The record is a 199-nucleotide RNA from Streptomyces sp. SDr-06, which matches "Actinobacteria sRNA Ms_IGR-5" in Rfam. The match comes from Rfam's covariance-model search (95 bits). By type it is a small RNA.
RNA sequence: ACACGAGAAGGGAGGUGGUUUGACAGAUGUAUGCAAACCGGACGCGUGAGGUGGCUGCGGGCUGACGCCUGCCAGUCGCACUCCUAGUGCGGGGCCGGCAUGACGUCGGCCAAUUUCCCAGCAGUCACCGACCCGCGGGCUCGCCGGUACGUCCGGCCGGCUCCUCUCCGGAGGAACCCGAGCCCGCGGGUUUCUGCUU
Numbered sequence: 001a002c003a004c005g006a007g008a009a010g011g012g013a014g015g016u017g018g019u020u021u022g023a024c025a026g027a028u029g030u031a032u033g034c035a036a037a038c039c040g041g042a043c044g045c046g047u048g049a050g051g052u053g054g055c056u057g058c059g060g061g062c063u064g065a066c067g068c069c070u071g072c073c074a075g076u077c078g079c080a081c082u083c084c085u086a087g088u089g090c091g092g093g094g095c096c097g098g099c100a101u102g103a104c105g106u107c108g109g110c111c112a113a114u115u116u117c118c119c120a121g122c123a124g125u126c127a128c129c130g131a132c133c134c135g136c137g138g139g140c141u142c143g144c145c146g147g148u149a150c151g152u153c154c155g156g157c158c159g160g161c162u163c164c165u166c167u168c169c170g171g172a173g174g175a176a177c178c179c180g181a182g183c184c185c186g187c188g189g190g191u192u193u194c195u196g197c198u199u
Stems, first nucleotide, its partner, number of pairs: 015058005060111007069102001073098001075096001130192012143161006